[Rfam]
Source information: This 58-nucleotide RNA sequence from Corynebacterium glutamicum belongs to the Rfam family "msiK RNA". The organism belongs to Corynebacterium glutamicum, within Bacteria. It scores 55 bits against the family's covariance model.

RNA sequence: UUCACUGUUUCUCACACUACGGAUCGUUCGGCACGUACCUGCCGAUGGAGGAGAUUCU
Numbered sequence: 001u002u003c004a005c006u007g008u009u010u011c012u013c014a015c016a017c018u019a020c021g022g023a024u025c026g027u028u029c030g031g032c033a034c035g036u037a038c039c040u041g042c043c044g045a046u047g048g049a050g051g052a053g054a055u056u057c058u
Base pairs, nucleotide, nucleotide: 010051011050012049013048015047016046028045029044030043031042032041033040